U1 spliceosomal RNA: a 160-nucleotide sequence from Schistosoma haematobium.
On this family, see Zwieb, Nucleic Acids Res 1997: "The uRNA database".
Pairs were carried over by alignment from the consensus structure, which is taken from published work.
[Rfam]
RNA sequence: AUGGUUACGCGUCUCCGGGUCGAGGGUGAUCAGGAAUGCUCUGACCCCAGGUGGAGGCUCACCAUUGCACCUCGGUGAGUUGAAACUCGCGACGAAACCUAAUCGGUUGUGCUCUGGCGUAUAGUUUUUGUCAGUGAGGAGGUCUCACAGCCCUCCCUUU
Numbered sequence: 001a002u003g004g005u006u007a008c009g010c011g012u013c014u015c016c017g018g019g020u021c022g023a024g025g026g027u028g029a030u031c032a033g034g035a036a037u038g039c040u041c042u043g044a045c046c047c048c049a050g051g052u053g054g055a056g057g058c059u060c061a062c063c064a065u066u067g068c069a070c071c072u073c074g075g076u077g078a079g080u081u082g083a084a085a086c087u088c089g090c091g092a093c094g095a096a097a098c099c100u101a102a103u104c105g106g107u108u109g110u111g112c113u114c115u116g117g118c119g120u121a122u123a124g125u126u127u128u129u130g131u132c133a134g135u136g137a138g139g140a141g142g143u144c145u146c147a148c149a150g151c152c153c154u155c156c157c158u159u160u
Stems, first nucleotide, its partner, number of pairs: 013119001015117001017047005023042005050087003056081003060077004091114002093111001095108001098105001136159004141153002144150001